[Rfam]
RNA sequence: UGAUAACAAUGAAGCAAAAGGUUGCGGGCCUUUGUGGCCCGGGAAUUUUUGCGGAGUAGUCUGAAAAUCAGGCGA
Numbered sequence: 001u002g003a004u005a006a007c008a009a010u011g012a013a014g015c016a017a018a019a020g021g022u023u024g025c026g027g028g029c030c031u032u033u034g035u036g037g038c039c040c041g042g043g044a045a046u047u048u049u050u051g052c053g054g055a056g057u058a059g060u061c062u063g064a065a066a067a068u069c070a071g072g073c074g075a
Stems, first nucleotide, its partner, number of pairs: 014052003018049004025041005059073004

This 75-nucleotide sequence from Dethiobacter alkaliphilus belongs to the Rfam family "S10-Clostridia ribosomal protein leader". The source organism's lineage runs through Bacteria, Bacillati, Dethiobacteria, Dethiobacteraceae and Dethiobacter alkaliphilus. Pairs were carried over by alignment from the consensus structure, which is taken from published work. Rfam classes the family as a cis-regulatory leader.